[Rfam]
RNA sequence: GGUAGUAGCAAAUAUUCAAAUGAGAACUUUGAAGACUGAAGUGGGGAAAGGUUCCGUGUGAACAGCAGUUGGACACGGGUAAGUCGAUCCUAAGGGGUGGCAUAACUGUCGCGUACGGCCCGAUAAGGGCCUUCUCCAAAAGGGAAGCCGGUUGAAAUUCCGGCACUUGGAUGUGGAUUCUCCACGGCAACGUAACUGAAUGUGGGGACGGUGGCACAAGUCUUGGAAGGAGUUAUCUUUUCUUUUUAACGGAGUCAACACCCUGGAAUUAGUUUGUCUAGAGAUAGGGUAUCGUUCCGGAAGAGGGGGGCAGCUUUGUCCCCUCCGAUGCACUUGUGACGCCCCUUGAAAACCCGCAGGAAGGAAUAGUUUUCACGCCAAGUCGUACUGAUAACCGCAGCAGGUCUCCAAGGUGAACAGCCUCUAGUUGA
Numbered sequence: 001g002g003u004a005g006u007a008g009c010a011a012a013u014a015u016u017c018a019a020a021u022g023a024g025a026a027c028u029u030u031g032a033a034g035a036c037u038g039a040a041g042u043g044g045g046g047a048a049a050g051g052u053u054c055c056g057u058g059u060g061a062a063c064a065g066c067a068g069u070u071g072g073a074c075a076c077g078g079g080u081a082a083g084u085c086g087a088u089c090c091u092a093a094g095g096g097g098u099g100g101c102a103u104a105a106c107u108g109u110c111g112c113g114u115a116c117g118g119c120c121c122g123a124u125a126a127g128g129g130c131c132u133u134c135u136c137c138a139a140a141a142g143g144g145a146a147g148c149c150g151g152u153u154g155a156a157a158u159u160c161c162g163g164c165a166c167u168u169g170g171a172u173g174u175g176g177a178u179u180c181u182c183c184a185c186g187g188c189a190a191c192g193u194a195a196c197u198g199a200a201u202g203u204g205g206g207g208a209c210g211g212u213g214g215c216a217c218a219a220g221u222c223u224u225g226g227a228a229g230g231a232g233u234u235a236u237c238u239u240u241u242c243u244u245u246u247u248a249a250c251g252g253a254g255u256c257a258a259c260a261c262c263c264u265g266g267a268a269u270u271a272g273u274u275u276g277u278c279u280a281g282a283g284a285u286a287g288g289g290u291a292u293c294g295u296u297c298c299g300g301a302a303g304a305g306g307g308g309g310g311c312a313g314c315u316u317u318g319u320c321c322c323c324u325c326c327g328a329u330g331c332a333c334u335u336g337u338g339a340c341g342c343c344c345c346u347u348g349a350a351a352a353c354c355c356g357c358a359g360g361a362a363g364g365a366a367u368a369g370u371u372u373u374c375a376c377g378c379c380a381a382g383u384c385g386u387a388c389u390g391a392u393a394a395c396c397g398c399a400g401c402a403g404g405u406c407u408c409c410a411a412g413g414u415g416a417a418c419a420g421c422c423u424c425u426a427g428u429u430g431a
Base pairs, nucleotide, nucleotide: 015033016032017031018030019029020028034429035428036427037426043409044408045407046406049389050388054078055077056076057075058074059073063071064070085385086384087383089143090142094137095136096112100109101108102107119129120128121127147164148163149162150161151160167381168380169379170378172377173376174375175374176373177371184193185192186191201358202357203356204355205354206353210343211342212341213340215338216337217336218335219334220333221332223328224327225326226246227245228244229243230242231241250299251298252297253296260290261289262288263287264286265285269281270280271279272278306323307322308321309320310319311318312317395404396403411423412422413421414420
A member of the RNA family "Eukaryotic large subunit ribosomal RNA" from Yarrowia lipolytica, 431 nucleotides of a longer RNA. The organism belongs to Yarrowia, within Eukaryota. The sequence is in the family's curated seed alignment.